[Rfam]
RNA sequence: AUGUCCUUGUGUUAUUUGCUGAUUGUUAUAAAUCCAAGAUCAGUGAUUGUCAAAAAGGACAAAUAUUAAAUACCAAUGACUCGUUAUUGUUUGAAAUGGCCCCACAAAGGUCUUUAAGCAUCUCCAUACAUUGGUGACAUUU
Numbered sequence: 001a002u003g004u005c006c007u008u009g010u011g012u013u014a015u016u017u018g019c020u021g022a023u024u025g026u027u028a029u030a031a032a033u034c035c036a037a038g039a040u041c042a043g044u045g046a047u048u049g050u051c052a053a054a055a056a057g058g059a060c061a062a063a064u065a066u067u068a069a070a071u072a073c074c075a076a077u078g079a080c081u082c083g084u085u086a087u088u089g090u091u092u093g094a095a096a097u098g099g100c101c102c103c104a105c106a107a108a109g110g111u112c113u114u115u116a117a118g119c120a121u122c123u124c125c126a127u128a129c130a131u132u133g134g135u136g137a138c139a140u141u142u
Stems, first nucleotide, its partner, number of pairs: 002061006010052002016046007088120008

A member of the RNA family "Small nucleolar RNA psi18S-1377" from Musca domestica, 142 nucleotides long. Rfam 15.1 lists 113 matches to the family in 34 species. Rfam describes the family as follows. psi18S-1377 is a member of the H/ACA class of snoRNA. This family is responsible for guiding the modification of uridines 1377 and 1279 to pseudouridine in Drosophila 18S rRNA. The family's RNA type in Rfam is H/ACA-box small nucleolar RNA. The match comes from Rfam's covariance-model search (61 bits).